Shown here is a 76-nucleotide sequence, a member of the family "tRNA".
RNA sequence: AGAAACUUAGGAUUAACUGUCACCAAACCAAAGGCCUUCAAAGCCUUAAAUAAGAGUUAAACUCUCUUAGUUUCUG
Numbered sequence: 001a002g003a004a005a006c007u008u009a010g011g012a013u014u015a016a017c018u019g020u021c022a023c024c025a026a027a028c029c030a031a032a033g034g035c036c037u038u039c040a041a042a043g044c045c046u047u048a049a050a051u052a053a054g055a056g057u058u059a060a061a062c063u064c065u066c067u068u069a070g071u072u073u074c075u076g
Base pairs, nucleotide, nucleotide: 001075002074003073004072005071006070007069010029011028013026031047032046033045034044035043052068053067054066055065056064
Its family is annotated with triplet codon-amino acid adaptor activity in the Gene Ontology.